[Rfam]
RNA sequence: UAAAUAAAGGAGCAAUAUCAACACUCUUGAUAGAACAAGAAAUUGGUUAUUGUUUCUUUGU
Numbered sequence: 001u002a003a004a005u006a007a008a009g010g011a012g013c014a015a016u017a018u019c020a021a022c023a024c025u026c027u028u029g030a031u032a033g034a035a036c037a038a039g040a041a042a043u044u045g046g047u048u049a050u051u052g053u054u055u056c057u058u059u060g061u
Stems, first nucleotide, its partner, number of pairs: 006059012021044001025040005

Description:
The record is a 61-nucleotide RNA sequence from Hibiscus trionum, which matches "Plastid-psbA-4 3UTR RNA" in Rfam. The family is grouped with related families in Rfam's "Plastid-psbA 3UTR RNA clan". Taxonomically the source falls in Hibiscus (Eukaryota, Streptophytina, Embryophyta, eudicotyledons). A search with the family's covariance model found it, with a score of 58 bits. On this family, see Richter et al., Plant Commun 2023: "Retrograde signaling in plants: A critical review focusing on the GUN pathway and beyond". Plastid psbA-4 is a non-coding RNA (ncRNA) present in plastids. It was identified in inverted repeat sequences in the 3 prime untranslate region (3UTR) of photosystem II quinone-binding protein (psbA).